The family of this 142-nucleotide sequence is "RT-14 RNA".
RNA sequence: CUCUCCAAAGUCAGAUGCUAUAAUCUCAAGGGAUUUUAGCCAGCACAGAGAGGAUAAAGGGGUCUGCUUCCGUGCCGACAAGGCAAAAAACAAGAUGAAGCUGUGCCUGCCGUUAGUAGAUCCCGAACGCCGCAAAGCACAG
Numbered sequence: 001c002u003c004u005c006c007a008a009a010g011u012c013a014g015a016u017g018c019u020a021u022a023a024u025c026u027c028a029a030g031g032g033a034u035u036u037u038a039g040c041c042a043g044c045a046c047a048g049a050g051a052g053g054a055u056a057a058a059g060g061g062g063u064c065u066g067c068u069u070c071c072g073u074g075c076c077g078a079c080a081a082g083g084c085a086a087a088a089a090a091c092a093a094g095a096u097g098a099a100g101c102u103g104u105g106c107c108u109g110c111c112g113u114u115a116g117u118a119g120a121u122c123c124c125g126a127a128c129g130c131c132g133c134a135a136a137g138c139a140c141a142g
Stems, first nucleotide, its partner, number of pairs: 001052005010046002017040004022035004074084003101142006108134003112130002119124001
Dot-bracket structure: (((((....((.....((((.((((......)))).))))....)).))))).....................(((.....)))................((((((.(((.((.....(....)....)).)))..))))))